Rfam assigns this 126-nucleotide RNA from Mesocricetus auratus to the family "Small nucleolar RNA SNORA28". Rfam describes the family as follows. ACA28 is a member of the H/ACA class of snoRNA that guide the sites of modification of uridines to pseudouridines. The base pairs follow the family's consensus structure, which was predicted with RNAfold. The source organism's lineage runs through Eukaryota, Teleostomi, Euarchontoglires, Cricetinae and Mesocricetus. The family has 26 seed sequences and 922 matches in Rfam 15.1. The literature on the family includes a 2001 paper in EMBO J by Huttenhofer et al., "RNomics: an experimental approach that identifies 201 candidates for novel, small, non-messenger RNAs in mouse". The family is grouped with related families in Rfam's "SNORA28 clan".
[Rfam]
RNA sequence: AAGCAACACUCUGUGGCAGGUGAACCAAACUUACCUGACACAAUUUGAGCUUGCUAUAGCAAGAGAGUCUAACCUAUUCCGGUGUUCUCUUCCCAUGAGACAAGCCGUUAUAUAGACUCAAACAAU
Numbered sequence: 001a002a003g004c005a006a007c008a009c010u011c012u013g014u015g016g017c018a019g020g021u022g023a024a025c026c027a028a029a030c031u032u033a034c035c036u037g038a039c040a041c042a043a044u045u046u047g048a049g050c051u052u053g054c055u056a057u058a059g060c061a062a063g064a065g066a067g068u069c070u071a072a073c074c075u076a077u078u079c080c081g082g083u084g085u086u087c088u089c090u091u092c093c094c095a096u097g098a099g100a101c102a103a104g105c106c107g108u109u110a111u112a113u114a115g116a117c118u119c120a121a122a123c124a125a126u
Base pairs, nucleotide, nucleotide: 009049010048011047012042013041014040015039017037018036019035020034021033022032065119066118067117068116069115070114071113075112076111077110080107081106082105083104088100089099090098091097